Source information
Rfam assigns this 164-nucleotide sequence from Cervus hanglu to the family "U1 spliceosomal RNA".
RNA sequence: AUACUUACUUGGCAGAGGAAAUCCCAUGAUCAAGAAGGUGGUUCUCCCAGGGCGAAUCUUACCCAUUGCCCUCAGGGUGUGUUGACUUCUGCGAUUUCCUCAAAUAGAGGAAACUCGACUGUGUAAUUUAUGCAAGUGGAGAACAGCUUGUGCGAUUUCCCCUG
Numbered sequence: 001a002u003a004c005u006u007a008c009u010u011g012g013c014a015g016a017g018g019a020a021a022u023c024c025c026a027u028g029a030u031c032a033a034g035a036a037g038g039u040g041g042u043u044c045u046c047c048c049a050g051g052g053c054g055a056a057u058c059u060u061a062c063c064c065a066u067u068g069c070c071c072u073c074a075g076g077g078u079g080u081g082u083u084g085a086c087u088u089c090u091g092c093g094a095u096u097u098c099c100u101c102a103a104a105u106a107g108a109g110g111a112a113a114c115u116c117g118a119c120u121g122u123g124u125a126a127u128u129u130a131u132g133c134a135a136g137u138g139g140a141g142a143a144c145a146g147c148u149u150g151u152g153c154g155a156u157u158u159c160c161c162c163u164g
Base pairs, nucleotide, nucleotide: 012122013121014120015119017047018046019045021043024041025040026039027038049090050089051088052087054086056083058081060079061078062077063076064075092117093116094115095113096111097110099109100108138162139161141159143158145156147154
The match comes from Rfam's covariance-model search (111 bits).